[Rfam]
This 79-nucleotide RNA from Wenzhouxiangella sp. AB-CW3 belongs to the Rfam family "Group II catalytic intron D1-D4-1". A search with the family's covariance model found it, with a score of 55 bits. About the family: Group II introns are found in rRNA, tRNA and mRNA of organelles in fungi, plants and protists, and also in mRNA in bacteria. Rfam 15.1 lists 2,508 matches to the family in 1,144 species. The base pairs follow the family's consensus structure.
Nucleotides: 079
Base pairs, nucleotide, nucleotide: 003022004021005020006019007018008017009016010015039046040045048079049078050077057072058071059070060069061068062067
Number, partner (000 for none) and nucleotide at each position: 001000u002000g003022a004021g005020c006019g007018c008017u009016g010015a011000g012000c013000a014000a015010u016009u017008g018007g019006c020005g021004c022003u023000g024000a025000c026000c027000g028000c029000c030000u031000g032000g033000g034000a035000g036000a037000a038000g039046u040045c041000a042000g043000c044000c045040g046039a047000g048079g049078g050077c051000a052000u053000a054000g055000u056000a057072g058071g059070u060069g061068a062067u063000u064000g065000g066000c067062g068061u069060c070059a071058c072057u073000g074000a075000a076000g077050g078049c079048c